[Rfam]
Background
The family of this 87-nucleotide RNA sequence from Myotis lucifugus is "mir-9195 microRNA precursor family". NCBI's taxonomy places the organism under Eukaryota, Metazoa, Deuterostomia, Laurasiatheria, Myotis. Pairs were carried over by alignment from the consensus structure, which was predicted with RNAalifold. Gene Ontology terms of the family: miRNA-mediated post-transcriptional gene silencing and RISC complex.
RNA sequence: AGAGGCCCUCCUUGGUUGGGGUAGAAUGCUUGCCUCGUUGCCAUGGUGACAAAGCAAGCAUUCUGCCAGGCCACUCACGCUGCCUGC
Numbered sequence: 001a002g003a004g005g006c007c008c009u010c011c012u013u014g015g016u017u018g019g020g021g022u023a024g025a026a027u028g029c030u031u032g033c034c035u036c037g038u039u040g041c042c043a044u045g046g047u048g049a050c051a052a053a054g055c056a057a058g059c060a061u062u063c064u065g066c067c068a069g070g071c072c073a074c075u076c077a078c079g080c081u082g083c084c085u086g087c
Stems, first nucleotide, its partner, number of pairs: 004084003013073005020067014037050005
Dot-bracket structure: ...(((......(((((..((((((((((((((...(((((....)))))...)))))))))))))).)))))........)))...